[Rfam]
RNA sequence: AGCACUUGUGUGUGUCUCUGUUUAAUUUGUAACAAAGCCUUACAGAUAGGUGCAAAUAGUAAAUCCUCUUUUGCAACCCAGAACUUAUUGCUGAUAGGAGAUUUUGGUGCAUAUAAGAAGGAAUAUA
Dot-bracket structure: .((((((((.(..(.((.(((....(....)))).)).)....).)))))))).........((.((.(((((.....(((((.((.(........).)).))))).......))))).)).))...